[Rfam]
RNA: TPP riboswitch aptamer (THI element)
RNA sequence: UUUAAAUAGUCGGGGAGCUUAUAUGGACUGGUGCAUUAUAAGCUGAGAUCGCAUUGCGGGACCCGUCGAACCUGAUUCAGUUAAUACUGGCGUAGGGAACUAUUUGCACGGGUGC
Numbered sequence: 001u002u003u004a005a006a007u008a009g010u011c012g013g014g015g016a017g018c019u020u021a022u023a024u025g026g027a028c029u030g031g032u033g034c035a036u037u038a039u040a041a042g043c044u045g046a047g048a049u050c051g052c053a054u055u056g057c058g059g060g061a062c063c064c065g066u067c068g069a070a071c072c073u074g075a076u077u078c079a080g081u082u083a084a085u086a087c088u089g090g091c092g093u094a095g096g097g098a099a100c101u102a103u104u105u106g107c108a109c110g111g112g113u114g115c
Stems, first nucleotide, its partner, number of pairs: 006103005011065004017043007050058003071096004077090004